[Rfam]
Rfam assigns this 137-nucleotide RNA from Miscanthus lutarioriparius to the family "Small nucleolar RNA Z247". The match comes from Rfam's covariance-model search (56 bits). The family's RNA type in Rfam is C/D-box small nucleolar RNA. For this family Rfam cites "The high diversity of snoRNAs in plants: identification and comparative study of 120 snoRNA genes from Oryza sativa" (Chen et al., Nucleic Acids Res, 2003).
RNA sequence: AAGCUGGAAGAUGAAGAGAUUGCUUCAUACAUCCUCGUUGGACUUGACAUCGAUUUCAAUCCUAUCGUGUCAUCCAUGGCGUCCCGUAUUGAGCCUCUGACCCUCAGCGAGCUCUACACCCAAUAGGUGAGUUGGGA
Numbered sequence: 001a002a003g004c005u006g007g008a009a010g011a012u013g014a015a016g017a018g019a020u021u022g023c024u025u026c027a028u029a030c031a032u033c034c035u036c037g038u039u040g041g042a043c044u045u046g047a048c049a050u051c052g053a054u055u056u057c058a059a060u061c062c063u064a065u066c067g068u069g070u071c072a073u074c075c076a077u078g079g080c081g082u083c084c085c086g087u088a089u090u091g092a093g094c095c096u097c098u099g100a101c102c103c104u105c106a107g108c109g110a111g112c113u114c115u116a117c118a119c120c121c122a123a124u125a126g127g128u129g130a131g132u133u134g135g136g137a
Stems, first nucleotide, its partner, number of pairs: 004136002007133002089107005